[Rfam]
Nucleotides: 043
Stems, first nucleotide, its partner, number of pairs: 002019007032043004
Number, partner (000 for none) and nucleotide at each position: 001000g002019c003018g004017u005016a006015a007014g008013g009000a010000c011000g012000a013008c014007c015006u016005u017004a018003c019002g020000g021000c022000a023000u024000u025000u026000a027000c028000a029000a030000a031000c032043g033042g034041g035040g036000a037000c038000g039000g040035c041034c042033c043032c